[Rfam]
RNA sequence: GGUAGCCGAAGACGCGGGCCGGAUUGAGAUUGGGCUGCACCAGCCGUACCUGUUCUGUCAGCGGGUCGUAGAGACCGCCAAAGCGGGUUGCCUUGAGUACCAGCAGCAGGGCUCCGACCCCCAACAGCACCAGAUGGAUGCCCAAAAUUGUGGUCAUUUUACGACCGUCCUG
Numbered sequence: 001g002g003u004a005g006c007c008g009a010a011g012a013c014g015c016g017g018g019c020c021g022g023a024u025u026g027a028g029a030u031u032g033g034g035c036u037g038c039a040c041c042a043g044c045c046g047u048a049c050c051u052g053u054u055c056u057g058u059c060a061g062c063g064g065g066u067c068g069u070a071g072a073g074a075c076c077g078c079c080a081a082a083g084c085g086g087g088u089u090g091c092c093u094u095g096a097g098u099a100c101c102a103g104c105a106g107c108a109g110g111g112c113u114c115c116g117a118c119c120c121c122c123a124a125c126a127g128c129a130c131c132a133g134a135u136g137g138a139u140g141c142c143c144a145a146a147a148u149u150g151u152g153g154u155c156a157u158u159u160u161a162c163g164a165c166c167g168u169c170c171u172g
Stems, first nucleotide, its partner, number of pairs: 133169005141163001144160002
RNA: Antisense RNA which regulates isiA expression
Organism: Vasconcelosia minhoensis